[Rfam]
RNA: Small nucleolar RNA SNORA51
Organism: Myotis myotis
RNA sequence: GGCCUCCUGGUGCUUACCACAAGCUGUGUUCUUACACUGACUGCACAGAAAUAGGAGGCAGAGUAAACCCACCCUAUAUACAUUUCAGCUUAGGCCCUUUGUCUGUUCUGUAUUGUGAAUGGGGAGAUAUUG
Numbered sequence: 001g002g003c004c005u006c007c008u009g010g011u012g013c014u015u016a017c018c019a020c021a022a023g024c025u026g027u028g029u030u031c032u033u034a035c036a037c038u039g040a041c042u043g044c045a046c047a048g049a050a051a052u053a054g055g056a057g058g059c060a061g062a063g064u065a066a067a068c069c070c071a072c073c074c075u076a077u078a079u080a081c082a083u084u085u086c087a088g089c090u091u092a093g094g095c096c097c098u099u100u101g102u103c104u105g106u107u108c109u110g111u112a113u114u115g116u117g118a119a120u121g122g123g124g125a126g127a128u129a130u131u132g
Base pairs, nucleotide, nucleotide: 002059003058004057005056006055007054008053020043021042026037027036028035029034072124073123074122075121076120077119086110087109088108091105092104093103094102095101